Shown here is a 101-nucleotide RNA from Romboutsia maritimum, a member of the family "azaaromatic riboswitch aptamer (yjdF RNA)". A search with the family's covariance model found it, with a score of 95 bits. The family's consensus secondary structure is taken from published work. The source organism's lineage runs through Bacteria, Bacillati, Bacillota, Clostridia and Romboutsia.
[Rfam]
RNA sequence: GAUUCGAAAGAUAAAAACACAGUUUCGGUUGGUAGUCCGAACCUAUUUAUAAAAUAGCAGUAACCUGCCCUCCUGGGUUGUCCAUUCUUUUGUAAUAAAAU
Numbered sequence: 001g002a003u004u005c006g007a008a009a010g011a012u013a014a015a016a017a018c019a020c021a022g023u024u025u026c027g028g029u030u031g032g033u034a035g036u037c038c039g040a041a042c043c044u045a046u047u048u049a050u051a052a053a054a055u056a057g058c059a060g061u062a063a064c065c066u067g068c069c070c071u072c073c074u075g076g077g078u079u080g081u082c083c084a085u086u087c088u089u090u091u092g093u094a095a096u097a098a099a100a101u
Stems, first nucleotide, its partner, number of pairs: 005092007022042002025040004043057006067078004